[Rfam]
Nucleotides: 115
Base pairs, nucleotide, nucleotide: 013103014102015101018098019097020096022094023093024092025091027089028088029087030086031085032084033083036080037079038078
Number, partner (000 for none) and nucleotide at each position: 001000g002000u003000a004000u005000g006000u007000g008000u009000g010000u011000u012000c013103g014102g015101a016000c017000g018098c019097a020096g021000a022094g023093g024092u025091u026000u027089a028088u029087c030086g031085a032084u033083c034000u035000g036080u037079u038078c039000c040000u041000g042000g043000a044000u045000u046000g047000c048000a049000a050000u051000a052000a053000g054000u055000u056000g057000a058000a059000g060000a061000a062000u063000a064000a065000a066000a067000a068000a069000g070000c071000a072000a073000u074000a075000c076000a077000u078038g079037a080036a081000u082000c083033g084032g085031u086030c087029g088028a089027u090000a091025a092024a093023c094022c095000u096020c097019u098018g099000c100000a101015u102014c103013c104000g105000g106000c107000c108000g109000g110000c111000c112000c113000c114000u115000u
The record is a 115-nucleotide RNA sequence from Coptis chinensis, which matches "MIR162_1 microRNA precursor family" in Rfam. A search with the family's covariance model found it, with a score of 78 bits. The organism belongs to Coptis, within Eukaryota. The base pairs follow the family's consensus structure, which was predicted with RNAalifold.